[Rfam]
RNA sequence: UAUGAAUCCUGUAGUCUUUAUGUCAAAGAAUGGAAUACAGCUUGCUAUAGCAACAAAAUCUAACCUAUUCCGGUGCUCUUCUCUCUGAGACAAGCCGUUAUAUAGACUCAGACAGU
Numbered sequence: 001u002a003u004g005a006a007u008c009c010u011g012u013a014g015u016c017u018u019u020a021u022g023u024c025a026a027a028g029a030a031u032g033g034a035a036u037a038c039a040g041c042u043u044g045c046u047a048u049a050g051c052a053a054c055a056a057a058a059u060c061u062a063a064c065c066u067a068u069u070c071c072g073g074u075g076c077u078c079u080u081c082u083c084u085c086u087g088a089g090a091c092a093a094g095c096c097g098u099u100a101u102a103u104a105g106a107c108u109c110a111g112a113c114a115g116u
Base pairs, nucleotide, nucleotide: 009040010039011038012037013036015034016033017032019030057108059106060105061104062103066102067101068100071097072096073095074094077090078089079088080087

The record is a 116-nucleotide RNA sequence from Myotis lucifugus, which matches "Small nucleolar RNA SNORA28" in Rfam. A search with the family's covariance model found it, with a score of 73 bits. For this family Rfam cites "RNomics: an experimental approach that identifies 201 candidates for novel, small, non-messenger RNAs in mouse" (Huttenhofer et al., EMBO J, 2001). ACA28 is a member of the H/ACA class of snoRNA that guide the sites of modification of uridines to pseudouridines. The family's RNA type in Rfam is H/ACA-box small nucleolar RNA.